The record is a 587-nucleotide part of an RNA from Gracilinema caldarium, which matches "Bacterial large subunit ribosomal RNA" in Rfam. The base pairs follow the family's consensus structure, which is taken from published work. The match comes from Rfam's covariance-model search (2773 bits). Its family is annotated with structural constituent of ribosome and ribosome in the Gene Ontology.
RNA sequence: CCCGUGGUUAGACGGAAAGACCCCGUGAACCUUCACCGUAACUUAUCAUUGGGACUUGAUUCGACAUGUGUAGGAUAGGUGGGAGACUAGGAAGCAUGGCCGUUAGGCUGUGUGGAGUCGCCGGUGAAAUACCACCCUUGUCGGAUUAGGUUUCUAACGGUGCCCUUGAAGCAGGGUAUCGGACAAUGAUAGGUGGGCGGUUUGACUGGGGCGGUCGCCUCCCAAACAGUAACGGAGGUGCGCGAAGGUCGCCUCGCGCUGGUUGGAAAUCAGCGUACGAGUGUAAAGGCACAAGGCGGCUUAACUGCGAGACUGACAGGUCGAGCAGGUACGAAAGUAGGUCUUAGUGAUCUGGCGGUAGCGAGUGGAAGCGCCGUCACUUAACGGAUAAAAGGUACUCCGGGGAUAACAGGCUGAUCUUCCCCAAGAGUUCACAUCGACGGGAAGGUUUGGCACCUCGAUGUCGGCUCAUCGCAUCCUGGGGCUGGAGCAGGUCCCAAGGGUUUGGCUGUUCGCCAAUUAAAGCGGUACGUGAGCUGGGUUCAGAACGUCGCGAGACAGUUCGGUCCCUAUCUGCCACGGGCGAU
Number, nucleotide and partner (000 for none) at each position: 001c583002c582003c581004g580005u579006g578007g577008u576009u000010a575011g574012a573013c000014g570015g569016a000017a000018a000019g000020a000021c000022c404023c403024c402025g401026u000027g400028a399029a396030c395031c394032u393033u392034c000035a201036c200037c199038g198039u000040a000041a000042c193043u192044u191045a190046u189047c188048a187049u000050u000051g154052g153053g152054a151055c150056u149057u148058g147059a146060u145061u144062c143063g142064a141065c140066a139067u000068g137069u000070g000071u000072a000073g000074g000075a000076u000077a000078g136079g135080u134081g133082g132083g000084a000085g119086a118087c117088u000089a000090g000091g000092a000093a000094g113095c112096a111097u110098g109099g108100c107101c106102g000103u000104u000105a000106g101107g100108c099109u098110g097111u096112g095113u094114g000115g000116a000117g087118u086119c085120g000121c000122c000123g000124g000125u000126g000127a000128a000129a000130u000131a000132c082133c081134a080135c079136c078137c068138u000139u066140g065141u064142c063143g062144g061145a060146u059147u058148a057149g056150g055151u054152u053153u052154c051155u000156a000157a000158c181159g180160g179161u178162g177163c176164c175165c174166u173167u000168g000169a000170a000171g000172c000173a166174g165175g164176g163177u162178a161179u160180c159181g158182g000183a000184c000185a000186a000187u048188g047189a046190u045191a044192g043193g042194u000195g000196g000197g000198c038199g037200g036201u035202u000203u000204g216205a215206c214207u213208g000209g000210g000211g000212c000213g207214g206215u205216c204217g239218c238219c237220u236221c235222c234223c000224a000225a000226a000227c000228a000229g000230u000231a000232a000233c000234g222235g221236a220237g219238g218239u217240g385241c000242g342243c341244g000245a000246a000247g000248g300249u299250c298251g297252c296253c295254u280255c279256g000257c275258g274259c273260u272261g271262g270263u000264u000265g000266g000267a000268a000269a000270u262271c261272a260273g259274c258275g257276u000277a000278c000279g255280a254281g290282u289283g000284u000285a000286a000287a000288g000289g282290c281291a000292c000293a000294a000295g253296g252297c251298g250299g249300c248301u000302u000303a000304a000305c328306u327307g326308c325309g000310a000311g322312a321313c320314u000315g000316a000317c000318a000319g000320g313321u312322c311323g000324a000325g308326c307327a306328g305329g000330u339331a338332c337333g000334a000335a000336a000337g332338u331339a330340g000341g243342u242343c000344u000345u000346a000347g000348u000349g000350a000351u000352c000353u379354g378355g377356c376357g375358g374359u373360a000361g372362c371363g000364a000365g000366u000367g000368g000369a000370a000371g362372c361373g359374c358375c357376g356377u355378c354379a353380c000381u000382u000383a000384a000385c240386g000387g000388a000389u000390a000391a000392a033393a032394g031395g030396u029397a000398c000399u028400c027401c025402g024403g023404g022405g000406a000407u000408a000409a000410c000411a000412g000413g454414c453415u452416g000417a451418u448419c447420u446421u445422c444423c443424c442425c000426a000427a000428g438429a437430g000431u000432u000433c000434a000435c000436a000437u429438c428439g000440a000441c000442g424443g423444g422445a421446a420447g419448g418449u000450u000451u417452g415453g414454c413455a000456c000457c000458u000459c000460g000461a000462u000463g000464u000465c540466g538467g537468c536469u535470c532471a529472u528473c527474g526475c525476a000477u000478c503479c502480u000481g498482g497483g496484g495485c494486u493487g000488g000489a000490g000491c000492a000493g486494g485495u484496c483497c482498c481499a000500a000501g000502g479503g478504u000505u519506u518507g517508g516509c515510u000511g000512u000513u000514c000515g509516c508517c507518a506519a505520u000521u000522a000523a000524a000525g475526c474527g473528g472529u471530a000531c000532g470533u000534g000535a469536g468537c467538u466539g000540g465541g000542u000543u000544c000545a000546g564547a563548a562549c561550g559551u558552c557553g000554c000555g000556a000557g552558a551559c550560a000561g549562u548563u547564c546565g000566g000567u000568c000569c015570c014571u000572a000573u012574c011575u010576g008577c007578c006579a005580c004581g003582g002583g001584c000585g000586a000587u000